[Rfam]
This 272-nucleotide sequence from Staphylococcus aureus belongs to the Rfam family "Staphylococcus sRNA 35 (srn_0335)". The match comes from Rfam's covariance-model search (156 bits). The base pairs follow the family's consensus structure, which was predicted with RNAfold.

RNA sequence: UAUUUAAAUGGAAUUGGGAGUAGGAAUGUGACAGAAAUAGUAUUUUAUAAAAUUUAUUUCGUUGUCACUCCCCAACUUGCACAUUAUUGUAAGCUGACUUUCCGCCAGCUUCUAUGUUGGGGCCCCGCCAACUUGCAUUGUCUGUAGAAUUUCUUUUUGAAAUUCUCUAUGUUGGGGCCCCGCCUAUAAUUGAAAAAUGCUUGUUACAUGGGCAUUUUCAUUCGGUCAACUACUACCAAUAUAAUAUUGUAGAGCCUAAGACAUUGAUUUAU
Numbered sequence: 001u002a003u004u005u006a007a008a009u010g011g012a013a014u015u016g017g018g019a020g021u022a023g024g025a026a027u028g029u030g031a032c033a034g035a036a037a038u039a040g041u042a043u044u045u046u047a048u049a050a051a052a053u054u055u056a057u058u059u060c061g062u063u064g065u066c067a068c069u070c071c072c073c074a075a076c077u078u079g080c081a082c083a084u085u086a087u088u089g090u091a092a093g094c095u096g097a098c099u100u101u102c103c104g105c106c107a108g109c110u111u112c113u114a115u116g117u118u119g120g121g122g123c124c125c126c127g128c129c130a131a132c133u134u135g136c137a138u139u140g141u142c143u144g145u146a147g148a149a150u151u152u153c154u155u156u157u158u159g160a161a162a163u164u165c166u167c168u169a170u171g172u173u174g175g176g177g178c179c180c181c182g183c184c185u186a187u188a189a190u191u192g193a194a195a196a197a198u199g200c201u202u203g204u205u206a207c208a209u210g211g212g213c214a215u216u217u218u219c220a221u222u223c224g225g226u227c228a229a230c231u232a233c234u235a236c237c238a239a240u241a242u243a244a245u246a247u248u249g250u251a252g253a254g255c256c257u258a259a260g261a262c263a264u265u266g267a268u269u270u271a272u
Stems, first nucleotide, its partner, number of pairs: 002014004016073003028068005034060007042053004075145002079141003085135001091111006098104001116132005123127001146166008168243008177234001182227001184225002188222003192219005200210001202208001249272005255266001
Source information:
The organism belongs to Staphylococcus aureus, within Bacteria.